[Rfam]
RNA sequence: UUGUCAUGAUGAUUCCAAGUAUGGUUUCGCAUUUCAUCAUCCUGUACAUUUCAUUGUUGAUGAUACUCCUUGGCUGUCUGAACAA
Numbered sequence: 001u002u003g004u005c006a007u008g009a010u011g012a013u014u015c016c017a018a019g020u021a022u023g024g025u026u027u028c029g030c031a032u033u034u035c036a037u038c039a040u041c042c043u044g045u046a047c048a049u050u051u052c053a054u055u056g057u058u059g060a061u062g063a064u065a066c067u068c069c070u071u072g073g074c075u076g077u078c079u080g081a082a083c084a085a
Stems, first nucleotide, its partner, number of pairs: 001085004
The family of this 85-nucleotide RNA sequence from Bemisia tabaci is "Small nucleolar RNA SNORD53/SNORD92". Gene Ontology terms of the family: nucleolus and RNA processing. The family is grouped with related families in Rfam's "SNORD52 clan". It scores 47 bits against the family's covariance model. The literature on the family includes a 1996 paper in Cell by Kiss-Laszlo et al., "Site-specific ribose methylation of preribosomal RNA: a novel function for small nucleolar RNAs". The source organism's lineage runs through Eukaryota, Eumetazoa, Sternorrhyncha, Aleyrodidae and Bemisia. By type it is a C/D-box small nucleolar RNA. The pairing is the family consensus, mapped onto this sequence.